[Rfam]
RNA sequence: AUUGCAAACUUGAGGCCAUAGCAGAAUCACUUGUGGCGUGGCCCUGUCAGAUUCCAUUGAAUCUGUGAAUUCUGCU
Numbered sequence: 001a002u003u004g005c006a007a008a009c010u011u012g013a014g015g016c017c018a019u020a021g022c023a024g025a026a027u028c029a030c031u032u033g034u035g036g037c038g039u040g041g042c043c044c045u046g047u048c049a050g051a052u053u054c055c056a057u058u059g060a061a062u063c064u065g066u067g068a069a070u071u072c073u074g075c076u
Base pairs, nucleotide, nucleotide: 012044014043015042016041017040020076021075022074023073024072025071026070028038048065049064050063051062052061053060054059

Source information
The record is a 76-nucleotide sequence from Crocodylus porosus, which matches "Mammalian CPEB3 ribozyme" in Rfam. The source organism's lineage runs through Eukaryota, Deuterostomia, Sauropsida, Archosauria and Crocodylus. The mammalian CPEB3 ribozyme is a self cleaving RNA located in the second intron of the CPEB3 gene which belongs to a family of genes regulating messenger RNA polyadenylation.